[Rfam]
Small nucleolar RNA SNORD24: an 84-nucleotide sequence from Castanea mollissima. A search with the family's covariance model found it, with a score of 62 bits.
RNA sequence: GGCCGGUGAUGUAAGGAUUAAUAUUUGCUACUCUUGAUGGGAUUUCCCAUUUGAUGAAUUUUAUCCACCAAGAUCUCUGAGGCC
Numbered sequence: 001g002g003c004c005g006g007u008g009a010u011g012u013a014a015g016g017a018u019u020a021a022u023a024u025u026u027g028c029u030a031c032u033c034u035u036g037a038u039g040g041g042a043u044u045u046c047c048c049a050u051u052u053g054a055u056g057a058a059u060u061u062u063a064u065c066c067a068c069c070a071a072g073a074u075c076u077c078u079g080a081g082g083c084c
Base pairs, nucleotide, nucleotide: 001084002083003082004081